Record summary
U12 minor spliceosomal RNA: a 155-nucleotide RNA sequence from Diabrotica virgifera. Its family is annotated with mRNA branch site recognition, pre-mRNA branch point binding and U12 snRNP in the Gene Ontology. For this family Rfam cites "Pre-mRNA splicing: the discovery of a new spliceosome doubles the challenge" (Tarn and Steitz, Trends Biochem Sci, 1997).
RNA sequence: GUGCCUUAAACUAAUGAGUAAGGAAAAUAAACAAGCCCUGGUAACGCUUGGCUUACAUACUAGAUUUACUAGUCUGUAAAUUUUUGCAGGGGUACAGGUCGUCCCGUGGAGGAAUGCAUACUCUAGCAAUCUUCCUGGUGACAGCGAUCUGCCCC
Numbered sequence: 001g002u003g004c005c006u007u008a009a010a011c012u013a014a015u016g017a018g019u020a021a022g023g024a025a026a027a028u029a030a031a032c033a034a035g036c037c038c039u040g041g042u043a044a045c046g047c048u049u050g051g052c053u054u055a056c057a058u059a060c061u062a063g064a065u066u067u068a069c070u071a072g073u074c075u076g077u078a079a080a081u082u083u084u085u086g087c088a089g090g091g092g093u094a095c096a097g098g099u100c101g102u103c104c105c106g107u108g109g110a111g112g113a114a115u116g117c118a119u120a121c122u123c124u125a126g127c128a129a130u131c132u133u134c135c136u137g138g139u140g141a142c143a144g145c146g147a148u149c150u151g152c153c154c155c
Stems, first nucleotide, its partner, number of pairs: 004023005033054005040047001057075001059073003089155005096150007105138001108135004113130001115128003